[Rfam]
RNA sequence: GAGGUCUGAGGGUAAGACGGAAAUAGUACGAGAGGAACUUUCCGUCGUCGCCACUGGUAUAUCGGUUGUCCGACAGGGCAGUGCCGAGUGGCUACGCGAUAAUGGAUAAAAGCUGAAAGCAUCUAAGCUUGAAACCAGACCUGAAAAGAGACCUCGUUUGAGGGCACGGAUAAAAGAUCCGUUUGAUAGGCUCGGGAUGUACGCACGAAGGUAACGACGUGUUCAGUCCACGAGUACUAACGCCCAAAUC
Numbered sequence: 001g002a003g004g005u006c007u008g009a010g011g012g013u014a015a016g017a018c019g020g021a022a023a024u025a026g027u028a029c030g031a032g033a034g035g036a037a038c039u040u041u042c043c044g045u046c047g048u049c050g051c052c053a054c055u056g057g058u059a060u061a062u063c064g065g066u067u068g069u070c071c072g073a074c075a076g077g078g079c080a081g082u083g084c085c086g087a088g089u090g091g092c093u094a095c096g097c098g099a100u101a102a103u104g105g106a107u108a109a110a111a112g113c114u115g116a117a118a119g120c121a122u123c124u125a126a127g128c129u130u131g132a133a134a135c136c137a138g139a140c141c142u143g144a145a146a147a148g149a150g151a152c153c154u155c156g157u158u159u160g161a162g163g164g165c166a167c168g169g170a171u172a173a174a175a176g177a178u179c180c181g182u183u184u185g186a187u188a189g190g191c192u193c194g195g196g197a198u199g200u201a202c203g204c205a206c207g208a209a210g211g212u213a214a215c216g217a218c219g220u221g222u223u224c225a226g227u228c229c230a231c232g233a234g235u236a237c238u239a240a241c242g243c244c245c246a247a248a249u250c
Stems, first nucleotide, its partner, number of pairs: 001155007010142004016046008047100005055094003062087005067080005103137003110130005162245004166182005187239003190235005195229003203222005210215001
Dot-bracket structure: (((((((..((((..((((((((...............))))))))(((((...(((....((((((((((....)))))..)))))....))).)))))..(((....(((((...........)))))....))).))))......)))))))......(((((((((.......)))))....(((((((((((.....(((((..(....)..)))))....))).))))).)))..)))).....
The family of this 250-nucleotide part of an RNA from Methanogenium marinum is "Archaeal large subunit ribosomal RNA". The family has 91 seed sequences and 2,955 matches in Rfam 15.1. A reference for the family is Yusupov et al. (2001), "Crystal structure of the ribosome at 5.5 A resolution", Science.